[Rfam]
RNA sequence: AAUAGAGGAACUCGGGCUAAGAACGCCGCAUCGUGCGGCAACGCCUGAGUGACCAACAUCGUGUUGG
Numbered sequence: 001a002a003u004a005g006a007g008g009a010a011c012u013c014g015g016g017c018u019a020a021g022a023a024c025g026c027c028g029c030a031u032c033g034u035g036c037g038g039c040a041a042c043g044c045c046u047g048a049g050u051g052a053c054c055a056a057c058a059u060c061g062u063g064u065u066g067g
Stems, first nucleotide, its partner, number of pairs: 011049007025039005053067005
RNA: Bacillaceae-1 RNA